Rfam assigns this 89-nucleotide RNA from Crenobacter intestini to the family "Neisseria metabolic switch regulator b (RcoF1/NgncR163)". Rfam 15.1 lists 65 matches to the family in 50 species. Sibling sRNA described and independently named in three publications. On this family, see Pannekoek et al., MBio 2017: "Neisseria meningitidis Uses Sibling Small Regulatory RNAs To Switch from Cataplerotic to Anaplerotic Metabolism". Taxonomically the source falls in Crenobacter (Bacteria, Pseudomonadota, Neisseriales, Neisseriaceae). Rfam classes the family as a small RNA. The base pairs follow the family's consensus structure, which was predicted with RNAfold.
RNA sequence: UCGUUGAGACGCAGCAAUGUUUCUUGAUAGUUUCUCCUCUAUUUCUCCUUUGUAGACUUGGCGCGGGCCGAUAAAUCCCGCGCAUUUUU
Numbered sequence: 001u002c003g004u005u006g007a008g009a010c011g012c013a014g015c016a017a018u019g020u021u022u023c024u025u026g027a028u029a030g031u032u033u034c035u036c037c038u039c040u041a042u043u044u045c046u047c048c049u050u051u052g053u054a055g056a057c058u059u060g061g062c063g064c065g066g067g068c069c070g071a072u073a074a075a076u077c078c079c080g081c082g083c084a085u086u087u088u089u
Stems, first nucleotide, its partner, number of pairs: 003028007011020001038056005061083007